[Rfam]
RNA sequence: GAGAGGAGGCCCCACGUGAUGCGAAGCAGCACGUUAUAAUGGGGCCGACGACCUGCCGCCGACGCUGAAAGCGGAGGGGGCGAUACCAUAU
Numbered sequence: 001g002a003g004a005g006g007a008g009g010c011c012c013c014a015c016g017u018g019a020u021g022c023g024a025a026g027c028a029g030c031a032c033g034u035u036a037u038a039a040u041g042g043g044g045c046c047g048a049c050g051a052c053c054u055g056c057c058g059c060c061g062a063c064g065c066u067g068a069a070a071g072c073g074g075a076g077g078g079g080g081c082g083a084u085a086c087c088a089u090a091u
Stems, first nucleotide, its partner, number of pairs: 008046006016032003020028002055081003059077002063073004

The family of this 91-nucleotide RNA sequence is "GA-cis RNA". The family's RNA type in Rfam is small RNA.